Source information:
The record is a 92-nucleotide RNA sequence from Papaver nudicaule, which matches "Small nucleolar RNA R44/J54/Z268 family" in Rfam.
[Rfam]
RNA sequence: UUUGCAAGUGACGACAAAACAGACAGGGACAUCAGAAUCCUAUUAUUAGGAUUACAUAUGUUGACACGUCUUGGGAAUCUCUCUGAUGCAUU
Numbered sequence: 001u002u003u004g005c006a007a008g009u010g011a012c013g014a015c016a017a018a019a020c021a022g023a024c025a026g027g028g029a030c031a032u033c034a035g036a037a038u039c040c041u042a043u044u045a046u047u048a049g050g051a052u053u054a055c056a057u058a059u060g061u062u063g064a065c066a067c068g069u070c071u072u073g074g075g076a077a078u079c080u081c082u083c084u085g086a087u088g089c090a091u092u
Base pairs, nucleotide, nucleotide: 003090004089005088006087
Dot-bracket structure: ..((((................................................................................))))..

The family's RNA type in Rfam is C/D-box small nucleolar RNA.